[Rfam]
RNA sequence: CACCUUAAAUGAAACUGGUUUUCACAAUGAUUUGCCAGAUAUUUUUAGAAAUUCUGAGAUCAUUGUGAAAACUGAUUUUGUUCC
Numbered sequence: 001c002a003c004c005u006u007a008a009a010u011g012a013a014a015c016u017g018g019u020u021u022u023c024a025c026a027a028u029g030a031u032u033u034g035c036c037a038g039a040u041a042u043u044u045u046u047a048g049a050a051a052u053u054c055u056g057a058g059a060u061c062a063u064u065g066u067g068a069a070a071a072c073u074g075a076u077u078u079u080g081u082u083c084c
Base pairs, nucleotide, nucleotide: 009081010080011079012078013077014076016074017073018072019071020070021069022068023067024066025065028062029061030060031059032058033057
A member of the RNA family "bantam microRNA precursor family" from Lingula anatina, 84 nucleotides long. Lineage of the source: Eukaryota > Protostomia > Lingulida > Linguloidea > Lingula.